[Rfam]
RNA: Pseudomonas sRNA P26
RNA sequence: GAAGUAGAUUGUCCAGUCUUCCUUCCAAGGAGUGGCUGGUGGCUGGUGGUUUUGAACCACCAGCCU
Numbered sequence: 001g002a003a004g005u006a007g008a009u010u011g012u013c014c015a016g017u018c019u020u021c022c023u024u025c026c027a028a029g030g031a032g033u034g035g036c037u038g039g040u041g042g043c044u045g046g047u048g049g050u051u052u053u054g055a056a057c058c059a060c061c062a063g064c065c066u
Stems, first nucleotide, its partner, number of pairs: 014038005022029002041065010